[Rfam]
RNA sequence: GUCUUUUAAUGAGACAUCAGACAAAAGCAGAAUAUCAAAGUUAAAGGCGCAGAUUUCUGCGCCUUUUUU
Numbered sequence: 001g002u003c004u005u006u007u008a009a010u011g012a013g014a015c016a017u018c019a020g021a022c023a024a025a026a027g028c029a030g031a032a033u034a035u036c037a038a039a040g041u042u043a044a045a046g047g048c049g050c051a052g053a054u055u056u057c058u059g060c061g062c063c064u065u066u067u068u069u
Stems, first nucleotide, its partner, number of pairs: 004016001006013002043066010
A member of the RNA family "Salmonella enterica sRNA STnc40" from Legionella israelensis, 69 nucleotides long. A search with the family's covariance model found it, with a score of 45 bits. Pairs were carried over by alignment from the consensus structure, which was predicted with LocARNA. The organism belongs to Legionella, within Bacteria.